[Rfam]
Nucleotides: 108
Base pairs, nucleotide, nucleotide: 023098024097025096026094027093028092029091030090035088036087037086038085039084040083041082042081043080048079049078050077051076052075053074054073
Number, partner (000 for none) and nucleotide at each position: 001000a002000g003000u004000u005000c006000a007000c008000u009000a010000u011000g012000u013000u014000a015000a016000a017000u018000a019000c020000u021000c022000a023098c024097g025096u026094c027093u028092g029091u030090c031000g032000a033000c034000a035088c036087g037086a038085u039084u040083g041082g042081u043080g044000g045000g046000g047000u048079g049078c050077u051076g052075g053074u054073c055000a056000a057000u058000g059000u060000g061000u062000a063000u064000a065000u066000c067000a068000c069000a070000a071000a072000a073054g074053a075052c076051u077050g078049g079048u080043c081042a082041u083040c084039g085038g086037u087036c088035g089000g090030g091029a092028c093027a094026g095000u096025a097024c098023g099000g100000a101000g102000g103000c104000g105000u106000a107000a108000c
The record is a 108-nucleotide RNA sequence from Methylomonas lenta, which matches "t44 RNA" in Rfam.
It is annotated as a small RNA.
Taxonomically the source falls in Methylomonas (Bacteria, Pseudomonadati, Pseudomonadota, Gammaproteobacteria).
A search with the family's covariance model found it, with a score of 58 bits.
For this family Rfam cites "Transcriptome analysis of Escherichia coli using high-density oligonucleotide probe arrays" (Tjaden et al., Nucleic Acids Res, 2002).